This 135-nucleotide sequence from Erinaceus europaeus belongs to the Rfam family "Small nucleolar RNA SNORA48". About the family: The snoRNA ACA 48 has been identified to guide pseudouridylation of the residue U3797 in the 28S rRNA subunit. Its Rfam clan is "SNORA48 clan". The family's consensus secondary structure was predicted with RNAalifold. It scores 122 bits against the family's covariance model.
RNA sequence: UGUCCCUGUCCUGGGUUGAGUGGCAUCUAUCUUGUGGUGUCCAUCUCGUAUCAGCCAAGGACAAAGAAAUCCGUUGUUUAUCUCAGCUUGACUUUAGGCCUGUGCCCAUGUCUGGUUCAUGCCUUAGAUAAAUGG
Number, nucleotide and partner (000 for none) at each position: 001u063002g062003u061004c060005c059006c000007u057008g056009u000010c000011c054012u053013g052014g051015g000016u000017u000018g047019a046020g045021u000022g041023g040024c039025a038026u037027c036028u000029a000030u000031c000032u000033u000034g000035u000036g027037g026038u025039g024040u023041c022042c000043a000044u000045c020046u019047c018048g000049u000050a000051u014052c013053a012054g011055c000056c008057a007058a000059g005060g004061a003062c002063a001064a000065a000066g000067a000068a000069a000070u000071c000072c000073g000074u000075u130076g129077u128078u127079u126080a125081u000082c000083u000084c000085a000086g000087c000088u000089u000090g123091a000092c121093u000094u000095u000096a000097g118098g117099c000100c115101u114102g113103u000104g111105c110106c000107c000108a000109u000110g105111u104112c000113u102114g101115g100116u000117u098118c097119a000120u000121g092122c000123c090124u000125u080126a079127g078128a077129u076130a075131a000132a000133u000134g000135g000